[Rfam]
RNA sequence: GGGAAACGGGGAUGGGGCCGGGGACACGAUCCCCCCCACGUCCUCCUCAGGCUAAUGGGCUCA
Numbered sequence: 001g002g003g004a005a006a007c008g009g010g011g012a013u014g015g016g017g018c019c020g021g022g023g024a025c026a027c028g029a030u031c032c033c034c035c036c037c038a039c040g041u042c043c044u045c046c047u048c049a050g051g052c053u054a055a056u057g058g059g060c061u062c063a
Stems, first nucleotide, its partner, number of pairs: 014044005021037003028062002031059002